[Rfam]
RNA sequence: CGAGUUGGCUGGGCGGCCGCGGCUCGUGUCGGUCUGAAAGGCCCGGUAACGAGUCGAGGAAAGUCCGGACUUCACAGAGCAGGGUGAUUGCUAACAGCAAUCCGAGGUGACUCGCGGGAUAGUGCCACAGAAAACAAACCGCCAUCCUCGCGGUGGUAAGGGUGAAACGGUGCGGUAAGAGCGCACCAGCAUCCCGGGUGACCGGGAUGGCUUGGUAAACCCCACCCGAAGCAAGGUCAAGAAGGCUGCACUACAAGUGCGGCCGCGCAGGCGUUCGAGAGCUGCUCGCCCGAGCCUGCGGGUAGGCCGCUUGAGGCACCCGGCAACGGUGUGUCCAGAUGGAUGGUCGCCGCCGCGCCACCGUAGGCAAUGCCGCGUUGGCGGGGAACAGAAUCCGGCUUAUAGGCCAACUCGCCCG
Numbered sequence: 001c002g003a004g005u006u007g008g009c010u011g012g013g014c015g016g017c018c019g020c021g022g023c024u025c026g027u028g029u030c031g032g033u034c035u036g037a038a039a040g041g042c043c044c045g046g047u048a049a050c051g052a053g054u055c056g057a058g059g060a061a062a063g064u065c066c067g068g069a070c071u072u073c074a075c076a077g078a079g080c081a082g083g084g085u086g087a088u089u090g091c092u093a094a095c096a097g098c099a100a101u102c103c104g105a106g107g108u109g110a111c112u113c114g115c116g117g118g119a120u121a122g123u124g125c126c127a128c129a130g131a132a133a134a135c136a137a138a139c140c141g142c143c144a145u146c147c148u149c150g151c152g153g154u155g156g157u158a159a160g161g162g163u164g165a166a167a168c169g170g171u172g173c174g175g176u177a178a179g180a181g182c183g184c185a186c187c188a189g190c191a192u193c194c195c196g197g198g199u200g201a202c203c204g205g206g207a208u209g210g211c212u213u214g215g216u217a218a219a220c221c222c223c224a225c226c227c228g229a230a231g232c233a234a235g236g237u238c239a240a241g242a243a244g245g246c247u248g249c250a251c252u253a254c255a256a257g258u259g260c261g262g263c264c265g266c267g268c269a270g271g272c273g274u275u276c277g278a279g280a281g282c283u284g285c286u287c288g289c290c291c292g293a294g295c296c297u298g299c300g301g302g303u304a305g306g307c308c309g310c311u312u313g314a315g316g317c318a319c320c321c322g323g324c325a326a327c328g329g330u331g332u333g334u335c336c337a338g339a340u341g342g343a344u345g346g347u348c349g350c351c352g353c354c355g356c357g358c359c360a361c362c363g364u365a366g367g368c369a370a371u372g373c374c375g376c377g378u379u380g381g382c383g384g385g386g387a388a389c390a391g392a393a394u395c396c397g398g399c400u401u402a403u404a405g406g407c408c409a410a411c412u413c414g415c416c417c418g
Base pairs, nucleotide, nucleotide: 001414002413003412004411005410006409007408008407009406010405011403012351013350014349015348016347017346018345020056021055022054023053024052025051026050027049061401062400063399065398066397067396068395069394070231071230072229073228077287078286079285080284082227083226084225085224086223087101088100089099090098091097102116103114104113105112106111117222118221122220123219124216125215126214139161140160141157142156143155144154145153146152169187170186171185172184173183174182189211190209191208192207193206194205195204196203197202235308236307237306238305267299268298269297270296271295272294279291281289282288315335316334317333318332319331320329321328322327
RNA: Bacterial RNase P class A
Organism: Mycobacterium leprae